[Rfam]
Nucleotides: 127
Stems, first nucleotide, its partner, number of pairs: 001055006014041007022033003067118006076109005083103005
Number, partner (000 for none) and nucleotide at each position: 001055g002054c003053a004052g005051a006050c007000u008000c009000a010000c011000u012000c013000u014041g015040c016039a017038c018037u019036c020035g021000g022033c023032u024031g025000c026000a027000g028000u029000u030000c031024c032023a033022g034000g035020c036019g037018g038017g039016u040015g041014u042000u043000u044000u045000u046000u047000u048000u049000u050006g051005u052004c053003u054002g055001c056000c057000a058000c059000a060000g061000a062000a063000a064000c065000a066000u067118u068117c069116c070115a071114g072113g073000g074000u075000c076109c077108u078107g079106u080105g081000a082000c083103u084102a085101c086100c087099u088000u089000g090000a091000c092000a093000u094000g095000u096000c097000a098000g099087a100086g101085g102084u103083g104000a105080u106079g107078c108077a109076g110000c111000u112000g113072c114071c115070u116069g117068g118067g119000g120000a121000c122000a123000u124000g125000g126000u127000u
This 127-nucleotide sequence from Molossus molossus belongs to the Rfam family "Small nucleolar RNA SNORA77". The literature on the family includes a 2006 paper in RNA by Schattner et al., "A computational screen for mammalian pseudouridylation guide H/ACA RNAs". Pairs were carried over by alignment from the consensus structure, which was predicted with RNAalifold. The family has 19 seed sequences and 843 matches in Rfam 15.1. It is annotated as an H/ACA-box small nucleolar RNA. ACA63 (SNORA77) is a member of the H/ACA class of snoRNAs that guide the sites of modification of uridines to pseudouridines. This snoRNA was identified by computational screening and its expression in mouse experimentally verified by Northern blot and primer extension analysis. ACA63 is proposed to guide the pseudouridylation of 18S rRNA U814.